[Rfam]
Nucleotides: 069
Stems, first nucleotide, its partner, number of pairs: 001069029
Number, partner (000 for none) and nucleotide at each position: 001069u002068a003067u004066u005065g006064a007063g008062c009061a010060c011059u012058u013057a014056c015055u016054a017053u018052g019051u020050g021049c022048a023047g024046a025045g026044c027043a028042c029041u030000g031000c032000a033000c034000u035000u036000a037000g038000u039000a040000c041029a042028g043027u044026g045025c046024u047023c048022u049021g050020c051019a052018c053017a054016u055015a056014g057013u058012a059011a060010g061009u062008g063007c064006u065005c066004a067003a068002u069001a